[Rfam]
The record is a 267-nucleotide sequence from Carpinus fangiana, which matches "RNase MRP" in Rfam.

RNA sequence: UUACCACGGGACGACAAGUGGUUAGGUUCUGUACUUUCGCAUUAAAAAACUGGACCUAGGAAAGUCCCGGGGCCCAUUCCUACAGCGAUGUAGGCUCGGAAUCGAGUACCUCUUCGGCUACGGAAGUUCUUUCGUCUUGUUGCGGGAAUAGGAUCCUCUGAGACACGUGUGGAGCCCCAGCGGACUUUCGCCGAAGAAGUCUUGGCCGUUGUUACACAGUUAUCCACUUGGUCGGACCAACUGAACGGGGCUUACUCUCUCGUGGUC
Dot-bracket structure: ..(((((((((....((((((.(((((((......................)))))))...[[[.[[[............((((....)))).(((((....))))).................((....(((.((.....((((.........................((....)).........)))).)).)))..)).....................)))))).((...))..........]]]]]]....))))))))).
On this family, see Schmitt et al., FASEB J 1993: "Secondary structure of RNase MRP RNA as predicted by phylogenetic comparison".
It scores 54 bits against the family's covariance model.
Lineage of the source: Eukaryota > Mesangiospermae > fabids > Fagales > Carpinus.
The family's consensus secondary structure is taken from published work.
Rfam links the family to the GO terms ribonuclease MRP activity, rRNA processing and ribonuclease MRP complex.